[Rfam]
RNA: U5 spliceosomal RNA
Organism: Acipenser ruthenus
RNA sequence: ACACUCUGGCUUCUCUUCAGUUCGAAUAAAUCUUUGGCCUUUUACUAAAGAUUUCCGUGGAGAGGAGCAUUUAUGAGUUCAAUGCAAUUUUUGGCUAGCCCUGCCCCUCAGGGUGG
Numbered sequence: 001a002c003a004c005u006c007u008g009g010c011u012u013c014u015c016u017u018c019a020g021u022u023c024g025a026a027u028a029a030a031u032c033u034u035u036g037g038c039c040u041u042u043u044a045c046u047a048a049a050g051a052u053u054u055c056c057g058u059g060g061a062g063a064g065g066a067g068c069a070u071u072u073a074u075g076a077g078u079u080c081a082a083u084g085c086a087a088u089u090u091u092u093g094g095c096u097a098g099c100c101c102u103g104c105c106c107c108u109c110a111g112g113g114u115g116g
Stems, first nucleotide, its partner, number of pairs: 003078004009068011028054008095116001098114005